RNA sequence: CGCGUCGGAGUGCCAGCAAUGAAACGACGGCGGGUGCGGAGGAACCAUCGUGGCGCCGCGACGCGGUGCCACCGGGGUGAAGCCGCCACCGGGUCCACCAGGGCCCACCGGCGGCCGGGCACCUCCAGGCCCGAACCCGACAGCUAACUUCGUAGGCGUCCGGAGGAACACAU
Numbered sequence: 001c002g003c004g005u006c007g008g009a010g011u012g013c014c015a016g017c018a019a020u021g022a023a024a025c026g027a028c029g030g031c032g033g034g035u036g037c038g039g040a041g042g043a044a045c046c047a048u049c050g051u052g053g054c055g056c057c058g059c060g061a062c063g064c065g066g067u068g069c070c071a072c073c074g075g076g077g078u079g080a081a082g083c084c085g086c087c088a089c090c091g092g093g094u095c096c097a098c099c100a101g102g103g104c105c106c107a108c109c110g111g112c113g114g115c116c117g118g119g120c121a122c123c124u125c126c127a128g129g130c131c132c133g134a135a136c137c138c139g140a141c142a143g144c145u146a147a148c149u150u151c152g153u154a155g156g157c158g159u160c161c162g163g164a165g166g167a168a169c170a171c172a173u
Stems, first nucleotide, its partner, number of pairs: 001033001036153006046074001075138003083114004117132004
A member of the RNA family "c-di-AMP riboswitch aptamer (ydaO/yuaA leader)" from Nocardioides sp. AX2bis, 173 nucleotides long. Pairs were carried over by alignment from the consensus structure. It scores 49 bits against the family's covariance model. The source organism's lineage runs through Bacteria, Actinomycetota, Propionibacteriales, Nocardioidaceae and Nocardioides.